[Rfam]
RNA sequence: GACGGGCCUCCUCGCAUUGUGGCUCGGGAACCUGGUCAGGUCCGGAAGGAAGCAGCCAUAACCGAAUCCCGCAAGUGCCGAGGGUUCGGCUCGUCCCC
Numbered sequence: 001g002a003c004g005g006g007c008c009u010c011c012u013c014g015c016a017u018u019g020u021g022g023c024u025c026g027g028g029a030a031c032c033u034g035g036u037c038a039g040g041u042c043c044g045g046a047a048g049g050a051a052g053c054a055g056c057c058a059u060a061a062c063c064g065a066a067u068c069c070c071g072c073a074a075g076u077g078c079c080g081a082g083g084g085u086u087c088g089g090c091u092c093g094u095c096c097c098c
Stems, first nucleotide, its partner, number of pairs: 004092005009084006015075001017074006024065004033058004041050003
The record is a 98-nucleotide sequence from Lautropia mirabilis, which matches "Bacterial small signal recognition particle RNA" in Rfam. Gene Ontology terms of the family: signal recognition particle, plasma membrane targeting and SRP-dependent cotranslational protein targeting to membrane, signal sequence recognition. It scores 73 bits against the family's covariance model. Rfam classes the family as a non-coding RNA gene. The family's consensus secondary structure is taken from published work. Lineage of the source: Bacteria > Pseudomonadati > Pseudomonadota > Betaproteobacteria > Lautropia mirabilis.